[Rfam]
RNA sequence: UGGCUCGAUUUCCUGGGACGUGGGCUCAGCCUGCCCCACUUCCCCUCAGCCGAGCCUAGAGCACAGAGGCCUGGCUGCCCCCCGCCUGCAGGGGAGAGGCGCUGGAGACGGGUGCCUGGCCCCAGGCUGUCCUCGCCUCACACUU
Numbered sequence: 001u002g003g004c005u006c007g008a009u010u011u012c013c014u015g016g017g018a019c020g021u022g023g024g025c026u027c028a029g030c031c032u033g034c035c036c037c038a039c040u041u042c043c044c045c046u047c048a049g050c051c052g053a054g055c056c057u058a059g060a061g062c063a064c065a066g067a068g069g070c071c072u073g074g075c076u077g078c079c080c081c082c083c084g085c086c087u088g089c090a091g092g093g094g095a096g097a098g099g100c101g102c103u104g105g106a107g108a109c110g111g112g113u114g115c116c117u118g119g120c121c122c123c124a125g126g127c128u129g130u131c132c133u134c135g136c137c138u139c140a141c142a143c144u145u
Stems, first nucleotide, its partner, number of pairs: 002056006015044004020039005066139005073132002082126002092117003
RNA: Small Cajal body specific RNA 21